[Rfam]
The record is a 58-nucleotide sequence from Drosophila mojavensis, which matches "mir-1011 microRNA precursor family" in Rfam. The family's consensus secondary structure was predicted with RNAalifold. Gene Ontology terms of the family: miRNA-mediated post-transcriptional gene silencing and RISC complex. Lineage of the source: Eukaryota > Protostomia > Mandibulata > Hexapoda > mojavensis species complex.
RNA sequence: GUGAGUCUUUGAGCCAGGAAUAUAUGUUCAUCUUAUUAUUGGUUCAAAUCUCUCGUAG
Numbered sequence: 001g002u003g004a005g006u007c008u009u010u011g012a013g014c015c016a017g018g019a020a021u022a023u024a025u026g027u028u029c030a031u032c033u034u035a036u037u038a039u040u041g042g043u044u045c046a047a048a049u050c051u052c053u054c055g056u057a058g
Stems, first nucleotide, its partner, number of pairs: 001056005008048010019037004
Dot-bracket structure: (((((..((((((((((.((((...........)))).))))))))))...)))))..